RNA sequence: GGUUUCCAUUAGUGCAAAUGGAUUUAAUUUGAGAUGAGAAGCAAUUCUCCAUUGGUAGCAAAUGGUUAUCCAUUAAGCGGAGGAAAUACUAU
Numbered sequence: 001g002g003u004u005u006c007c008a009u010u011a012g013u014g015c016a017a018a019u020g021g022a023u024u025u026a027a028u029u030u031g032a033g034a035u036g037a038g039a040a041g042c043a044a045u046u047c048u049c050c051a052u053u054g055g056u057a058g059c060a061a062a063u064g065g066u067u068a069u070c071c072a073u074u075a076a077g078c079g080g081a082g083g084a085a086a087u088a089c090u091a092u
Stems, first nucleotide, its partner, number of pairs: 010022001047082004051073002054070006
RNA: Plastid-rps12 3UTR RNA